[Rfam]
Description
Shown here is a 36-nucleotide RNA from Taibaiella chishuiensis, a member of the family "DUF805b RNA". A search with the family's covariance model found it, with a score of 43 bits.
RNA sequence: UGCGCGAAACCCGAAAAGCGCCUAAUAGAGUAGGGA
Number, nucleotide and partner (000 for none) at each position: 001u000002g021003c020004g019005c018006g000007a000008a000009a000010c035011c034012c033013g000014a000015a000016a000017a000018g005019c004020g003021c002022c000023u000024a000025a000026u000027a000028g000029a000030g000031u000032a000033g012034g011035g010036a000